[Rfam]
Nucleotides: 351
Base pairs, nucleotide, nucleotide: 001314002313003312009311011198012197013196014195016192018191019190020189022085023084024083025082026081027080028079030078031077032074033073034072035071036070037069038068039067040066046062047061048060049059050058051057089185090184091183092181093180094179095178096177097176100174101173102172103171104170105169106168107151111147112146113145114144115143116142117141118140122133123132124131159166160165203244204243205242206241207240208239212238213237217233218232219231220230255310256309257308258307259306260305263288264287265286266285267284268283269282270281271280292299293298316343317342318341325336326335327334328333
Number, partner (000 for none) and nucleotide at each position: 001314g002313g003312u004000u005000u006000a007000a008000a009311g010000g011198g012197u013196g014195c015000g016192u017000a018191g019190g020189c021000g022085g023084a024083u025082u026081a027080u028079u029000a030078a031077g032074u033073c034072u035071u036070g037069g038068g039067u040066g041000a042000a043000a044000u045000c046062c047061u048060a049059c050058c051057g052000c053000u054000u055000a056000a057051c058050g059049g060048u061047a062046g063000a064000a065000c066040u067039g068038c069037c070036u071035g072034a073033g074032a075000a076000a077031c078030u079028g080027g081026u082025a083024a084023u085022c086000u087000u088000g089185a090184g091183u092181a093180u094179a095178g096177u097176u098000g099000a100174g101173g102172u103171a104170g105169c106168u107151g108000g109000a110000a111147u112146u113145g114144g115143u116142g117141g118140u119000g120000u121000a122133g123132c124131g125000g126000u127000g128000a129000a130000a131124u132123g133122c134000a135000u136000a137000g138000a139000u140118a141117c142116c143115a144114c145113c146112a147111g148000g149000a150000a151107c152000c153000c154000c155000u156000a157000u158000u159166g160165c161000g162000a163000a164000g165160g166159c167000a168106a169105g170104u171103u172102a173101c174100u175000a176097a177096g178095c179094u180093a181092u182000a183091a184090c185089u186000g187000a188000c189020g190019c191018u192016g193000a194000u195014g196013c197012a198011c199000g200000a201000a202000a203244g204243c205242g206241u207240g208239g209000g210000g211000a212238g213237c214000g215000a216000a217233c218232a219231g220230g221000a222000u223000u224000a225000g226000a227000u228000a229000c230220c231219c232218u233217g234000g235000u236000a237213g238212u239208c240207c241206a242205c243204g244203c245000c246000g247000u248000a249000a250000a251000c252000g253000a254000u255310g256309a257308u258307g259306a260305c261000u262000c263288g264287c265286u266285g267284u268283u269282g270281g271280c272000g273000a274000u275000a276000g277000a278000c279000a280271g281270u282269c283268a284267g285266u286265g287264g288263c289000u290000a291000a292299g293298g294000g295000a296000a297000a298293c299292c300000g301000u302000u303000a304000a305260g306259u307258c308257a309256u310255c311009c312003a313002c314001c315000u316343g317342g318341g319000g320000a321000g322000u323000a324000c325336g326335a327334c328333c329000g330000c331000a332000a333328g334327g335326u336325u337000g338000a339000a340000a341318c342317u343316c344000a345000a346000a347000g348000g349000a350000a351000u